[Rfam]
Overview:
Manganese Mn2+ riboswitch aptamer (yybP-ykoY): a 179-nucleotide sequence from Hydrogenophaga sp. A37. This RNA was originally discovered in E. coli during a large scale screen and was named SraF. The family was later found to exist upstream of related families of protein genes in many bacteria, including the the yybP and ykoK genes in B. subtilis. The specific functions of these proteins are unknown, but this structured RNA element may be involved in their genetic regulation as a riboswitch.

RNA sequence: CGCGCAGUCAUUGGGGAGUAGCCGCUCUUCACCCUGAAGAGGUUUGCGUCAACACACUUGGUCCCUCGGACCAUGGCGCACACAGUUCCCGAACCUGGCAAGACCUUUGACCACAACGCCCCGCAUGCGGCCGGGGGUGUGUUGUGGUCAAUCGUCCUUGUACCGGCCCAAUGGAAAUC
Numbered sequence: 001c002g003c004g005c006a007g008u009c010a011u012u013g014g015g016g017a018g019u020a021g022c023c024g025c026u027c028u029u030c031a032c033c034c035u036g037a038a039g040a041g042g043u044u045u046g047c048g049u050c051a052a053c054a055c056a057c058u059u060g061g062u063c064c065c066u067c068g069g070a071c072c073a074u075g076g077c078g079c080a081c082a083c084a085g086u087u088c089c090c091g092a093a094c095c096u097g098g099c100a101a102g103a104c105c106u107u108u109g110a111c112c113a114c115a116a117c118g119c120c121c122c123g124c125a126u127g128c129g130g131c132c133g134g135g136g137g138u139g140u141g142u143u144g145u146g147g148u149c150a151a152u153c154g155u156c157c158u159u160g161u162a163c164c165g166g167c168c169c170a171a172u173g174g175a176a177a178u179c
Base pairs, nucleotide, nucleotide: 026040027039028038042083043082045080046079047078048077049076050075051074059073060072061071062070063069084178086176087175088174089173

The match comes from Rfam's covariance-model search (91 bits). The organism belongs to Hydrogenophaga, within Bacteria.